RNA: MIR821 microRNA precursor family
Organism: Oryza glumipatula
RNA sequence: CAUUUCAACUGAAAAAGUUAUCAACAACAAAGUUGAACAACUCAUCAAGAUCUAAGACUUUUAUUUUGGUCAUUUCUUUAUCUGAUAAGGUGAUAGUAACAUUGUUUACAAAAUUUACAUAUCUCUUAUAUGGUUUUUAUAAACUAUAACACAUAUAUGUAAAAUUUGUGAACAAUGUUACUAACAUUUUAUCAGAUGAAGAAAUGACCAAAAUAAAAGUUUUAGAUCUUGAUGAGUUAUUCAACUUUGUUGUUGAUAUCUUUUUUAGUUGAAAUC
Numbered sequence: 001c002a003u004u005u006c007a008a009c010u011g012a013a014a015a016a017g018u019u020a021u022c023a024a025c026a027a028c029a030a031a032g033u034u035g036a037a038c039a040a041c042u043c044a045u046c047a048a049g050a051u052c053u054a055a056g057a058c059u060u061u062u063a064u065u066u067u068g069g070u071c072a073u074u075u076c077u078u079u080a081u082c083u084g085a086u087a088a089g090g091u092g093a094u095a096g097u098a099a100c101a102u103u104g105u106u107u108a109c110a111a112a113a114u115u116u117a118c119a120u121a122u123c124u125c126u127u128a129u130a131u132g133g134u135u136u137u138u139a140u141a142a143a144c145u146a147u148a149a150c151a152c153a154u155a156u157a158u159g160u161a162a163a164a165u166u167u168g169u170g171a172a173c174a175a176u177g178u179u180a181c182u183a184a185c186a187u188u189u190u191a192u193c194a195g196a197u198g199a200a201g202a203a204a205u206g207a208c209c210a211a212a213a214u215a216a217a218a219g220u221u222u223u224a225g226a227u228c229u230u231g232a233u234g235a236g237u238u239a240u241u242c243a244a245c246u247u248u249g250u251u252g253u254u255g256a257u258a259u260c261u262u263u264u265u266u267a268g269u270u271g272a273a274a275u276c
Base pairs, nucleotide, nucleotide: 014263015262016261017260019258020257021256023254024253026251027250030247031246032245033244034243035242036241037240039238040237041236042235044233045232046231047230048229049228050227051226052225053224055222056221057220058219059218060217061216062215063214064213065212066211067210069208070207071206072205073204074203075202077200078199079198080197081196083194084193085192086191087190088189089188090187091186092185094183095182096181097180098179099178101176102175103174104173105172106171107170108169109168110167111166112165114163115162117160118159119158120157121156122155131146132145133144134143135142136141